[Rfam]
RNA: SAM-III riboswitch aptamer (SMK box)
Nucleotides: 091
Stems, first nucleotide, its partner, number of pairs: 012084005020050003024043007056079002
Number, partner (000 for none) and nucleotide at each position: 001000u002000a003000u004000c005000g006000g007000u008000u009000c010000a011000a012084g013083u014082c015081c016080u017000g018000a019000u020050a021049g022048g023000a024043u025042u026041c027040a028039u029038u030037a031000c032000u033000u034000a035000g036000u037030u038029a039028a040027u041026g042025a043024a044000g045000a046000u047000g048022c049021c050020u051000u052000g053000u054000a055000a056079c057078c058000g059000g060000a061000u062000a063000g064000c065000c066000a067000a068000u069000g070000u071000c072000u073000a074000u075000a076000u077000a078057g079056g080016g081015g082014g083013a084012c085000u086000a087000a088000u089000a090000u091000g